[Rfam]
RNA sequence: CCGUUUAACUCGUCGCUCCUUUGAGGGCGACUACGGGAG
Numbered sequence: 001c002c003g004u005u006u007a008a009c010u011c012g013u014c015g016c017u018c019c020u021u022u023g024a025g026g027g028c029g030a031c032u033a034c035g036g037g038a039g
Stems, first nucleotide, its partner, number of pairs: 001036004012031007
RNA: THF-II riboswitch (folE RNA)
Organism: Phyllobacterium sp. YR531